[Rfam]
Description: The family of this 78-nucleotide RNA from Oryza sativa is "MIR5148 microRNA precursor family". Rfam's curators put it in the seed alignment. The organism belongs to Oryza, within Eukaryota. Its family is annotated with miRNA-mediated post-transcriptional gene silencing and RISC complex in the Gene Ontology.
RNA sequence: UACGAUAUGACGUUUGUACCCCUCACAAGUAUAAGUAUAAUGUAUGUCAAUGAGGGGUAGAAAUGUCAUAUCAUGUGU
Numbered sequence: 001u002a003c004g005a006u007a008u009g010a011c012g013u014u015u016g017u018a019c020c021c022c023u024c025a026c027a028a029g030u031a032u033a034a035g036u037a038u039a040a041u042g043u044a045u046g047u048c049a050a051u052g053a054g055g056g057g058u059a060g061a062a063a064u065g066u067c068a069u070a071u072c073a074u075g076u077g078u
Base pairs, nucleotide, nucleotide: 004072005071006070007069008068009067010066011065012064013063014062015061017059018058019057020056021055022054023053024052025051029048031047032046033045